A member of the RNA family "U5 spliceosomal RNA" from Hibiscus trionum, 116 nucleotides long.
The family's RNA type in Rfam is spliceosomal small nuclear RNA.
Its family is annotated with spliceosomal tri-snRNP complex assembly and U5 snRNP in the Gene Ontology.
The base pairs follow the family's consensus structure, which is taken from published work.
About the family: U5 RNA is a component of both types of known spliceosome.
[Rfam]
RNA sequence: AGCCGCGCGGUGAGCACAGAGCGAACUAUUCUUUCGCCUUUUACUAAAGAAUACCGUGUUCUCGCCGCUUAAAGUGGCAUACGCCUAUUUUUGGAGAGCCGUUCCUUUGGGGACCG
Numbered sequence: 001a002g003c004c005g006c007g008c009g010g011u012g013a014g015c016a017c018a019g020a021g022c023g024a025a026c027u028a029u030u031c032u033u034u035c036g037c038c039u040u041u042u043a044c045u046a047a048a049g050a051a052u053a054c055c056g057u058g059u060u061c062u063c064g065c066c067g068c069u070u071a072a073a074g075u076g077g078c079a080u081a082c083g084c085c086u087a088u089u090u091u092u093g094g095a096g097a098g099c100c101g102u103u104c105c106u107u108u109g110g111g112g113a114c115c116g
Base pairs, nucleotide, nucleotide: 003077004076005075006074008067009066010065011064012063013062014061016059017058018057027053028052029051030050031049032048033047034046100116101115103113104112